Rfam assigns this 79-nucleotide sequence from Hermetia illucens to the family "drz-agam-1 ribozyme". The base pairs follow the family's consensus structure, which is taken from published work. The family has 7 seed sequences and 10,507 matches in Rfam 15.1. Its family is annotated with catalytic activity in the Gene Ontology. A reference for the family is Webb et al. (2009), "Widespread occurrence of self-cleaving ribozymes", Science.
[Rfam]
RNA sequence: UGCUACCAAACCCUAUCUCUACCUCCACGUGGUGAAUCCUGGGAGCUCUUUCGUAACGAAAAGCUGCAGACGGAGAAGG
Numbered sequence: 001u002g003c004u005a006c007c008a009a010a011c012c013c014u015a016u017c018u019c020u021a022c023c024u025c026c027a028c029g030u031g032g033u034g035a036a037u038c039c040u041g042g043g044a045g046c047u048c049u050u051u052c053g054u055a056a057c058g059a060a061a062a063g064c065u066g067c068a069g070a071c072g073g074a075g076a077a078g079g
Stems, first nucleotide, its partner, number of pairs: 012079003016075001018073002021033003045065001047063001049061005